[Rfam]
RNA sequence: GAAGACCCUGUUGAGCUUGACUCUAGUCUGAUAUUGCAUAGUGACCUAAAAGGUGUAGAAUAGGUGGGAGGGGCAACCCGACGGUGAAAUACCACCCCUUUUGGCGUUACUUUGCUAACUUGGAAUAACAGUACCUUCUAGUUUAGGCUAGAAUGGUUUUGGUGAUUAAAAUGGGUUACCACGGGUGAAAUCUAUUGUAGAAGGGCAACCUUAUGCAGUAGUAAAGUAGUCCCUCUGGUCCAUUGUAAUGUCGACCAAGAACAGUUUCAGGUGGGGAGUUUGGCUGGGGCGGCACAUUUGUUAAAAGAUAACGCAAGUGUCCAAAGGCAGGCUCAGUGAGAACAGAAAUCUCACGUAGAGUAAAAGGGCAAAAGCCUGCUUGAUUCUGAUUUUCAGUACUAAUCGGAACUGGGAAACCAGGGCCUAUCGAUCCUUUAUGUGCUUAAAUCUUAAGCCUAGAGGUGUCAGAAAAGUUACCACAGGGAUAACUGGCUUGUGGCAGCCAAGCGCUCAUAGCGACGCUGCUUUUUGAUCCUUCGAUGU
Dot-bracket structure: ......((((.(((((((.((((...(((((.(..(((.((((((((((((((.........(((((..((......))............))))))))))))).)))))).)))...(((((.....((.(....(((((......))))).................(((((((((.........................................................)))))))))..).))....))))).....).)))))....))))..((((.....))).)((((((...........))))))..((....((((((((.((((((.......))))))...))((......))....))))))....((((((((.........)))))))).(((....))).))..........(((((...((((.......)))).))))).........)))))..))))))........(.(.(.((((((...((.......))...))))))...)).)..........
Description: Eukaryotic large subunit ribosomal RNA: a 543-nucleotide part of an RNA from Dictyostelium purpureum. The family is grouped with related families in Rfam's "LSU clan". The organism belongs to Dictyostelium, within Eukaryota. The sequence is in the family's curated seed alignment.